[Rfam]
Shown here is a 98-nucleotide RNA from Clostridium beijerinckii, a member of the family "Purine riboswitch aptamer".
Rfam's curators put it in the seed alignment.
Gene Ontology term of the family: purine nucleobase biosynthetic process.
The base pairs follow the family's consensus structure, which is taken from published work.
NCBI's taxonomy places the organism under Bacteria, Bacillati, Eubacteriales, Clostridiaceae, Clostridium beijerinckii.

RNA sequence: AAUAUAGCACAUUUGAAAACUUAUAUAUACCUUGAAUAUGGCAAGGAGUAUCUACCGGGAGCCGUAAAUUUCCGACUAUAAGUGAUAUUAGUAUAGGC
Numbered sequence: 001a002a003u004a005u006a007g008c009a010c011a012u013u014u015g016a017a018a019a020c021u022u023a024u025a026u027a028u029a030c031c032u033u034g035a036a037u038a039u040g041g042c043a044a045g046g047a048g049u050a051u052c053u054a055c056c057g058g059g060a061g062c063c064g065u066a067a068a069u070u071u072c073c074g075a076c077u078a079u080a081a082g083u084g085a086u087a088u089u090a091g092u093a094u095a096g097g098c
Base pairs, nucleotide, nucleotide: 019083020082021081022080023079024078025077030046031045032044033043034042056074057073058072059071060070061069